uup RNA: a 48-nucleotide sequence. Rfam's curators put it in the seed alignment.
RNA sequence: ACAAGCUAUACUCUGUACAAAUGAAACCGAUGAAACAUUGUACAGAGU
Numbered sequence: 001a002c003a004a005g006c007u008a009u010a011c012u013c014u015g016u017a018c019a020a021a022u023g024a025a026a027c028c029g030a031u032g033a034a035a036c037a038u039u040g041u042a043c044a045g046a047g048u
Base pairs, nucleotide, nucleotide: 011047012046013045014044015043017041018040019039